RNA sequence: UCCUCGCUCAAAGAAUCGCAUUCAAAGCUCACACACGCAAGGAAGCUUCGCUCCCUUUCUCAAUCUUGCUUUGGGAGAAAGUCCCCGGACACCCUGCGCUUUGGGUCAAACCAAAGUUACCAAAGUCAGGCAAUGCGGAAACGCGCCGCCAUAGAAGCAAUUCGAUAGCGGCUUACGCCCUGUUCUCUCACGGUACCCCGUGCCGCCCGACGGCUGCAUUUCACGAUGUCGCUGGAAAUAAUGGGGUGUGUGCUGGAUGCUGGAGGGAGGAAGGAUUGGUGGUCACACAUCCCUCCUUGUAUUGGGUUGCCUUUCGUCGAGUUCGGAUAGUCAUGCGAUUGCCUCUUGUCUGGCUUCUUCGGAUGUCGGAUGGGGGUAACUCAAUGGGGCUCAUUCUUGAGGCGAGG
Numbered sequence: 001u002c003c004u005c006g007c008u009c010a011a012a013g014a015a016u017c018g019c020a021u022u023c024a025a026a027g028c029u030c031a032c033a034c035a036c037g038c039a040a041g042g043a044a045g046c047u048u049c050g051c052u053c054c055c056u057u058u059c060u061c062a063a064u065c066u067u068g069c070u071u072u073g074g075g076a077g078a079a080a081g082u083c084c085c086c087g088g089a090c091a092c093c094c095u096g097c098g099c100u101u102u103g104g105g106u107c108a109a110a111c112c113a114a115a116g117u118u119a120c121c122a123a124a125g126u127c128a129g130g131c132a133a134u135g136c137g138g139a140a141a142c143g144c145g146c147c148g149c150c151a152u153a154g155a156a157g158c159a160a161u162u163c164g165a166u167a168g169c170g171g172c173u174u175a176c177g178c179c180c181u182g183u184u185c186u187c188u189c190a191c192g193g194u195a196c197c198c199c200g201u202g203c204c205g206c207c208c209g210a211c212g213g214c215u216g217c218a219u220u221u222c223a224c225g226a227u228g229u230c231g232c233u234g235g236a237a238a239u240a241a242u243g244g245g246g247u248g249u250g251u252g253c254u255g256g257a258u259g260c261u262g263g264a265g266g267g268a269g270g271a272a273g274g275a276u277u278g279g280u281g282g283u284c285a286c287a288c289a290u291c292c293c294u295c296c297u298u299g300u301a302u303u304g305g306g307u308u309g310c311c312u313u314u315c316g317u318c319g320a321g322u323u324c325g326g327a328u329a330g331u332c333a334u335g336c337g338a339u340u341g342c343c344u345c346u347u348g349u350c351u352g353g354c355u356u357c358u359u360c361g362g363a364u365g366u367c368g369g370a371u372g373g374g375g376g377u378a379a380c381u382c383a384a385u386g387g388g389g390c391u392c393a394u395u396c397u398u399g400a401g402g403c404g405a406g407g
Base pairs, nucleotide, nucleotide: 002407003406004405005404006403007402008400009399010398011397014340015339016338017337018336019335022075023073024072025071026070027069028068040056041055042054044052045051046050080391081390083389084388085387086386099116100115101114102113103112104111255302259300260299262297263295264294265293266292279288280287281286342376343375344374345373346372
Dot-bracket structure: .((((((((((..((((((..(((((((...........(((.(((...))).)))...........)))))).)....[[.[[[[............((((((......))))))..........................................................................................................................................(...((.(((((............(((....)))...)))).).)).)................................)))))).(((((.........................))))).........]]]]]].....)))).))))))